[Rfam]
RNA sequence: ACGCACGAUGCACCCGGGCUUCUUUGAAGUAUGCGAUGAUGAAAAAAGCCCCAAUGCUCGUGCUAAAUUUGUGCCGUAGCCCGUAGGUUUGCUCAACAGCUUAUUUUUGUCAAAAUAACGGGCACAUUU
Numbered sequence: 001a002c003g004c005a006c007g008a009u010g011c012a013c014c015c016g017g018g019c020u021u022c023u024u025u026g027a028a029g030u031a032u033g034c035g036a037u038g039a040u041g042a043a044a045a046a047a048g049c050c051c052c053a054a055u056g057c058u059c060g061u062g063c064u065a066a067a068u069u070u071g072u073g074c075c076g077u078a079g080c081c082c083g084u085a086g087g088u089u090u091g092c093u094c095a096a097c098a099g100c101u102u103a104u105u106u107u108u109g110u111c112a113a114a115a116u117a118a119c120g121g122g123c124a125c126a127u128u129u
Stems, first nucleotide, its partner, number of pairs: 003063006010057002016051005021045001023042002074121004079116001082109002085106003091100003
RNA: small nucleolar RNA snoR134